[Rfam]
This 93-nucleotide sequence from Ferriphaselus amnicola belongs to the Rfam family "Burkholderia RNA 7 (anti-hemB)". Rfam 15.1 lists 479 matches to the family in 458 species. Rfam links the family to the GO terms bacterial biofilm matrix and protein binding. From the family's description: This RNA motif was identified by computational search in b-proteobacteria Burkholderia. Co-purified with Hfq, expression confirmed by Northern blot. The organism belongs to Ferriphaselus, within Bacteria.

RNA sequence: UCUCCCGUUUCUCCUCCCUGAGCGGGUGUCUUAACCCCCUUGUUAAGACUUUUGCCCCAGCGCCUCCCCCUUUGGCUGCCGGGGCAUUUUUUU
Numbered sequence: 001u002c003u004c005c006c007g008u009u010u011c012u013c014c015u016c017c018c019u020g021a022g023c024g025g026g027u028g029u030c031u032u033a034a035c036c037c038c039c040u041u042g043u044u045a046a047g048a049c050u051u052u053u054g055c056c057c058c059a060g061c062g063c064c065u066c067c068c069c070c071u072u073u074g075g076c077u078g079c080c081g082g083g084g085c086a087u088u089u090u091u092u093u
Stems, first nucleotide, its partner, number of pairs: 004026006028049007055084004060079003